[Rfam]
RNA sequence: AAUACUGUUCUGUUUUCCCUUCGUAUAACCCCAAUGAUAUGGAUUGGGGGUCUCUACCAGGAACCAUUAAUUCCUGAUUACGAAGAGUUUAGUACAUCAG
Numbered sequence: 001a002a003u004a005c006u007g008u009u010c011u012g013u014u015u016u017c018c019c020u021u022c023g024u025a026u027a028a029c030c031c032c033a034a035u036g037a038u039a040u041g042g043a044u045u046g047g048g049g050g051u052c053u054c055u056a057c058c059a060g061g062a063a064c065c066a067u068u069a070a071u072u073c074c075u076g077a078u079u080a081c082g083a084a085g086a087g088u089u090u091a092g093u094a095c096a097u098c099a100g
Base pairs, nucleotide, nucleotide: 019085020084021083022082023081024080025079029049030048031047032046033045034044035043058076059075060074061073062072063071
The family of this 100-nucleotide RNA sequence from Moritella sp. Urea-trap-13 is "Purine riboswitch aptamer". The match comes from Rfam's covariance-model search (78 bits).